[Rfam]
A member of the RNA family "HNH endonuclease-associated RNA and ORF (HEARO) RNA" from Cyanomargarita calcarea, 234 nucleotides long. For this family Rfam cites "Exceptional structured noncoding RNAs revealed by bacterial metagenome analysis" (Weinberg et al., Nature, 2009).

RNA sequence: GUCAACAACCCCUGCCUAAAGGCGAGGGGCUUCGGGCUUCGGCUUGAAGUCUCUAAUUUUUAGGAUUAGUUGACCAGACUCAGCGCCCGCUACGUUAUUGGCAAGAGUUUAAGACCUACCAAGAGAUGCGUGCUAGUCUCUUGCUCUAGAACUCGGCAAUUAAACAGGUGUAUAAGGUUAAGCCAGUGUUGCCGAGAUAGUACCGACCAAUAACUUUGUCAAAGCUGCUUGUGU
Numbered sequence: 001g002u003c004a005a006c007a008a009c010c011c012c013u014g015c016c017u018a019a020a021g022g023c024g025a026g027g028g029g030c031u032u033c034g035g036g037c038u039u040c041g042g043c044u045u046g047a048a049g050u051c052u053c054u055a056a057u058u059u060u061u062a063g064g065a066u067u068a069g070u071u072g073a074c075c076a077g078a079c080u081c082a083g084c085g086c087c088c089g090c091u092a093c094g095u096u097a098u099u100g101g102c103a104a105g106a107g108u109u110u111a112a113g114a115c116c117u118a119c120c121a122a123g124a125g126a127u128g129c130g131u132g133c134u135a136g137u138c139u140c141u142u143g144c145u146c147u148a149g150a151a152c153u154c155g156g157c158a159a160u161u162a163a164a165c166a167g168g169u170g171u172a173u174a175a176g177g178u179u180a181a182g183c184c185a186g187u188g189u190u191g192c193c194g195a196g197a198u199a200g201u202a203c204c205g206a207c208c209a210a211u212a213a214c215u216u217u218g219u220c221a222a223a224g225c226u227g228c229u230u231g232u233g234u
Base pairs, nucleotide, nucleotide: 001074002073003072004071005070006069008067010029011028012026013025015022016021030049031048032047033046034045035044036043037042077220078219079218082091083090084089094214095213096212097211098210099209100208101207116149117148120143121142122141123140124139125138126137127136128230130228131227132225133224134223152196153195154194155193156192157191158190159189160188164187165186167184168183169182171180172179
Notes: It is annotated as a non-coding RNA gene.